[Rfam]
RNA sequence: GGUGUCAGCGCGGGAGAGUGCGGGGGGAUGCAAAUCGCCCUGCCGCCGAAGGAGCAAGGGCCCCUCCAAUCUCUCAGGCACCAGGACCGCGCUGGCGUA
Numbered sequence: 001g002g003u004g005u006c007a008g009c010g011c012g013g014g015a016g017a018g019u020g021c022g023g024g025g026g027g028a029u030g031c032a033a034a035u036c037g038c039c040c041u042g043c044c045g046c047c048g049a050a051g052g053a054g055c056a057a058g059g060g061c062c063c064c065u066c067c068a069a070u071c072u073c074u075c076a077g078g079c080a081c082c083a084g085g086a087c088c089g090c091g092c093u094g095g096c097g098u099a
Stems, first nucleotide, its partner, number of pairs: 006094008020043006045079003048075002052073003058066002
The record is a 99-nucleotide RNA from Sandarakinorhabdus sp., which matches "Glycine riboswitch aptamer" in Rfam. It scores 67 bits against the family's covariance model. On this family, see Mandal et al., Science 2004: "A glycine-dependent riboswitch that uses cooperative binding to control gene expression". The organism belongs to Sandarakinorhabdus, within Bacteria.